[Rfam]
RNA sequence: CCGGGCCGACGCGGACGCCCGGUAAGGCGGUGUCCGCCCAAGUCCGC
Dot-bracket structure: ((((((....[[[[[.))))))...(((((...)))))....]]]]]
A member of the RNA family "chrB-b RNA" from Sphingobium sp. YR768, 47 nucleotides long.